Rfam assigns this 67-nucleotide RNA to the family "L31-Actinobacteria ribosomal protein leader".
Nucleotides: 067
Stems, first nucleotide, its partner, number of pairs: 003067003007062004015056005
Number, partner (000 for none) and nucleotide at each position: 001000g002000c003067g004066g005065u006000u007062c008061c009060g010059g011000u012000u013000c014000a015056c016055g017054c018053c019052a020000c021000c022000a023000a024000g025000g026000g027000u028000c029000g030000g031000c032000c033000c034000g035000c036000c037000c038000c039000a040000u041000g042000a043000c044000g045000g046000g047000u048000g049000a050000c051000c052019u053018g054017g055016c056015g057000a058000c059010c060009c061008g062007g063000c064000g065005a066004c067003c
By type it is a cis-regulatory leader.